[Rfam]
RNA: MIR8757 microRNA precursor family
Nucleotides: 071
Base pairs, nucleotide, nucleotide: 005067006066007065008064009063010062011061012060013059014058015057016056017054018053019052020051024048025047028042029041030040031039032038033037
Number, partner (000 for none) and nucleotide at each position: 001000u002000a003000u004000u005067u006066c007065a008064g009063g010062u011061u012060g013059g014058g015057u016056c017054g018053g019052g020051c021000u022000u023000g024048g025047g026000c027000a028042a029041g030040c031039a032038u033037a034000a035000a036000g037033u038032a039031u040030g041029u042028u043000a044000a045000u046000a047025u048024c049000a050000u051020g052019c053018u054017u055000a056016g057015g058014c059013c060012c061011g062010a063009c064008c065007u066006g067005a068000c069000u070000c071000g